[Rfam]
RNA sequence: AAAAUAAUUCAAUACUUACCGAAGACAGUUAGUGGCCCAAGCCUUAAUUUCUAACCGAGGGAGAUCGAGAUUCACCGCAUCAGGUGUUAGAUAGUUCUCUAUGUCUUCAGUGACAUGGAGUUUUUUUAUUGCUCGG
Numbered sequence: 001a002a003a004a005u006a007a008u009u010c011a012a013u014a015c016u017u018a019c020c021g022a023a024g025a026c027a028g029u030u031a032g033u034g035g036c037c038c039a040a041g042c043c044u045u046a047a048u049u050u051c052u053a054a055c056c057g058a059g060g061g062a063g064a065u066c067g068a069g070a071u072u073c074a075c076c077g078c079a080u081c082a083g084g085u086g087u088u089a090g091a092u093a094g095u096u097c098u099c100u101a102u103g104u105c106u107u108c109a110g111u112g113a114c115a116u117g118g119a120g121u122u123u124u125u126u127u128a129u130u131g132c133u134c135g136g
Stems, first nucleotide, its partner, number of pairs: 028055005034043003097120009
The family of this 136-nucleotide RNA from Aerococcus sanguinicola is "Ribosomal protein L10 leader". Rfam links the family to the GO term regulation of gene expression. On this family, see Zengel and Lindahl, Prog Nucleic Acid Res Mol Biol 1994: "Diverse mechanisms for regulating ribosomal protein synthesis in Escherichia coli". The match comes from Rfam's covariance-model search (72 bits). Taxonomically the source falls in Aerococcus (Bacteria, Bacillati, Bacilli, Lactobacillales).